[Rfam]
This 82-nucleotide RNA from Eucalyptus grandis belongs to the Rfam family "Small nucleolar RNA R16". Rfam links the family to the GO terms nucleolus and RNA processing. A reference for the family is Galardi et al. (2002), "Purified box C/D snoRNPs are able to reproduce site-specific 2'-O-methylation of target RNA in vitro", Mol Cell Biol. It is annotated as a C/D-box small nucleolar RNA. The source organism's lineage runs through Eukaryota, Euphyllophyta, Magnoliopsida, Gunneridae and Eucalyptus.
RNA sequence: GAAGGCAAAUGAUGGAUAAAAAAGUUAUAUACACACUGAAAUCUCAUGUGGUUUACUUUUCCGCUUAUUGUCUGAUGCCUAU
Number, nucleotide and partner (000 for none) at each position: 001g000002a000003a080004g079005g078006c077007a076008a000009a000010u000011g000012a000013u000014g000015g000016a000017u000018a000019a000020a000021a000022a000023a000024g000025u000026u000027a000028u000029a000030u000031a000032c000033a000034c000035a000036c000037u000038g000039a000040a000041a000042u000043c000044u000045c000046a000047u000048g000049u000050g000051g000052u000053u000054u000055a000056c000057u000058u000059u000060u000061c000062c000063g000064c000065u000066u000067a000068u000069u000070g000071u000072c000073u000074g000075a000076u007077g006078c005079c004080u003081a000082u000